[Rfam]
RNA sequence: AUACUUACCUGGACGGGGUCAAAUGGGUGAUCAUGAAGGCUCAUGGCCUAGGUAGGUGACUUCCAUUGCACUUUGGAGGGGCGCCUGCCUAACAUCUCCUCAAGAGGGAGAGUGUACGUCAUAAUUUGUGAUAGGGGGGCUUGCGUUCGCGCAGCCCCUAC
Numbered sequence: 001a002u003a004c005u006u007a008c009c010u011g012g013a014c015g016g017g018g019u020c021a022a023a024u025g026g027g028u029g030a031u032c033a034u035g036a037a038g039g040c041u042c043a044u045g046g047c048c049u050a051g052g053u054a055g056g057u058g059a060c061u062u063c064c065a066u067u068g069c070a071c072u073u074u075g076g077a078g079g080g081g082c083g084c085c086u087g088c089c090u091a092a093c094a095u096c097u098c099c100u101c102a103a104g105a106g107g108g109a110g111a112g113u114g115u116a117c118g119u120c121a122u123a124a125u126u127u128g129u130g131a132u133a134g135g136g137g138g139g140c141u142u143g144c145g146u147u148c149g150c151g152c153a154g155c156c157c158c159u160a161c
Stems, first nucleotide, its partner, number of pairs: 012120004016049006024043005050090003056084003060080003063076002092115003095111003099107002135159004142153004
U1 spliceosomal RNA: a 161-nucleotide RNA sequence from Spinacia oleracea.
Its family is annotated with pre-mRNA 5'-splice site binding, U1 snRNP and mRNA 5'-splice site recognition in the Gene Ontology.
The literature on the family includes a 1997 paper in Nucleic Acids Res by Zwieb, "The uRNA database".
From the family's description: U1 is a small nuclear RNA (snRNA) component of the spliceosome (involved in pre-mRNA splicing). Its 5' end forms complementary base pairs with the 5' splice junction, thus defining the 5' donor site of an intron. There are significant differences in sequence and secondary structure between metazoan and yeast U1 snRNAs, the latter being much longer (568 nucleotides as compared to 164 nucleotides in human). Nevertheless, secondary structure predictions suggest that all U1 snRNAs share a 'common core' consisting of helices I, II, the proximal region of III, and IV. This family does not contain the larger yeast sequences.
Rfam classes the family as a spliceosomal small nuclear RNA.
Clan: U1 clan.
The source organism's lineage runs through Eukaryota, Spermatophyta, eudicotyledons, Amaranthaceae and Spinacia.
Rfam 15.1 lists 40,184 matches to the family in 1,499 species.